[Rfam]
mir-726 microRNA precursor family: an 87-nucleotide RNA sequence from Albula goreensis.
RNA sequence: UCAGGGGUACGUCUGGAAUUCCGCUAGUUCUGAACUAUUCAUGAUUGGCAAAAGUUCACUACUAGCAGAACUCGGACUUGCACCUGA
Numbered sequence: 001u002c003a004g005g006g007g008u009a010c011g012u013c014u015g016g017a018a019u020u021c022c023g024c025u026a027g028u029u030c031u032g033a034a035c036u037a038u039u040c041a042u043g044a045u046u047g048g049c050a051a052a053a054g055u056u057c058a059c060u061a062c063u064a065g066c067a068g069a070a071c072u073c074g075g076a077c078u079u080g081c082a083c084c085u086g087a
Base pairs, nucleotide, nucleotide: 003085004084005083007081008080009079011077013075014074015073016072019070020069021068023066024065025064026063027062028061031058032057033056034055035054036053038052039051
Dot-bracket structure: ..(((.(((.(.((((..(((.((((((..((((((.((...........))))))))..)))))).))).)))).).))).)))..

Gene Ontology terms of the family: RISC complex and miRNA-mediated post-transcriptional gene silencing.
The match comes from Rfam's covariance-model search (94 bits).
Rfam 15.1 lists 131 matches to the family in 112 species.
The organism belongs to Albula, within Eukaryota.